Selenocysteine transfer RNA: a 91-nucleotide RNA sequence from Actinocatenispora rupis. It scores 78 bits against the family's covariance model. NCBI's taxonomy places the organism under Bacteria, Actinomycetota, Actinomycetes, Micromonosporales, Actinocatenispora.
RNA sequence: GGAGGCGUAUCCGGCCUGGUGACCGGCGCGGUCUUCAACACCGUUGAGCCCGAGCAUCUCGGGCUGGCGGGUUCGAUUCCCGUCCGCCUCC
Numbered sequence: 001g002g003a004g005g006c007g008u009a010u011c012c013g014g015c016c017u018g019g020u021g022a023c024c025g026g027c028g029c030g031g032u033c034u035u036c037a038a039c040a041c042c043g044u045u046g047a048g049c050c051c052g053a054g055c056a057u058c059u060c061g062g063g064c065u066g067g068c069g070g071g072u073u074c075g076a077u078u079c080c081c082g083u084c085c086g087c088c089u090c091c
Stems, first nucleotide, its partner, number of pairs: 001091007009083001011026004016021001028044005047065005068082004